A member of the RNA family "U4 spliceosomal RNA" from Eumeta japonica, 140 nucleotides long.
From the family's description: U4 small nuclear RNA (U4 snRNA) is a component of the major U2-dependent spliceosome.
Clan: U4 clan.
It is annotated as a spliceosomal small nuclear RNA.
RNA sequence: AGGUUUGCGCAGAGGCAAUAUUGUAAUUGAUGAAGUUCUAAUCAGGUGGGAUUAUUGCUAGCUUAAAACUUUAACCAAUACCCCGCCAUGGGAACGGGAAAUACCGUCUGCUACGGCAAUUUUUGUAAGUCCGGGAGGGC
Numbered sequence: 001a002g003g004u005u006u007g008c009g010c011a012g013a014g015g016c017a018a019u020a021u022u023g024u025a026a027u028u029g030a031u032g033a034a035g036u037u038c039u040a041a042u043c044a045g046g047u048g049g050g051a052u053u054a055u056u057g058c059u060a061g062c063u064u065a066a067a068a069c070u071u072u073a074a075c076c077a078a079u080a081c082c083c084c085g086c087c088a089u090g091g092g093a094a095c096g097g098g099a100a101a102u103a104c105c106g107u108c109u110g111c112u113a114c115g116g117c118a119a120u121u122u123u124u125g126u127a128a129g130u131c132c133g134g135g136a137g138g139g140c
Base pairs, nucleotide, nucleotide: 020052021051022050024048026047027046028045034042036040085117086116087115090111092109094107095106096105097104129140130139131138132137